Overview:
The record is a 51-nucleotide RNA sequence, which matches "Glutamine riboswitch aptamer (glnA leader)" in Rfam. The family's consensus secondary structure is taken from published work.
RNA sequence: AUCGUUCAACCCUAAUGGGUCGGAAGUAAGCAGCCGCUGAAGGAACGCGCA
Numbered sequence: 001a002u003c004g005u006u007c008a009a010c011c012c013u014a015a016u017g018g019g020u021c022g023g024a025a026g027u028a029a030g031c032a033g034c035c036g037c038u039g040a041a042g043g044a045a046c047g048c049g050c051a
Base pairs, nucleotide, nucleotide: 003047004046005045006044007043009020010019011018012017023048029038030037031036